[Rfam]
RNA sequence: GUGCGUCCCAAGUCUUUCCGCUGUGCCUUGUGUAAGAACGCUAAUUAAACAGGCGCAGCCAUGAUUUCCCUGGUGUUGGCGCAGUAUUAGCGCACCCCGGCCAGGCC
Numbered sequence: 001g002u003g004c005g006u007c008c009c010a011a012g013u014c015u016u017u018c019c020g021c022u023g024u025g026c027c028u029u030g031u032g033u034a035a036g037a038a039c040g041c042u043a044a045u046u047a048a049a050c051a052g053g054c055g056c057a058g059c060c061a062u063g064a065u066u067u068c069c070c071u072g073g074u075g076u077u078g079g080c081g082c083a084g085u086a087u088u089a090g091c092g093c094a095c096c097c098c099g100g101c102c103a104g105g106c107c
Stems, first nucleotide, its partner, number of pairs: 020059008072096003079093004

Shown here is a 107-nucleotide sequence from Klebsiella sp. RIT-PI-d, a member of the family "ArcZ RNA". A search with the family's covariance model found it, with a score of 87 bits. Gene Ontology terms of the family: regulation of translation and protein binding. The source organism's lineage runs through Bacteria, Pseudomonadati, Enterobacterales, Enterobacteriaceae and Klebsiella. From the family's description: This RNA was discovered in E. coli during a large scale screen. SraH expression is highly abundant in stationary phase, but low levels could be detected in exponentially growing cells as well. ArcZ RNA function as an activator of the alternative sigma factor RpoS as a response of stress. ArcZ afects and is also affected by the ArcA-ArcB regulon (aerobic/anaerobic-sensing ArcA-ArcB two-component).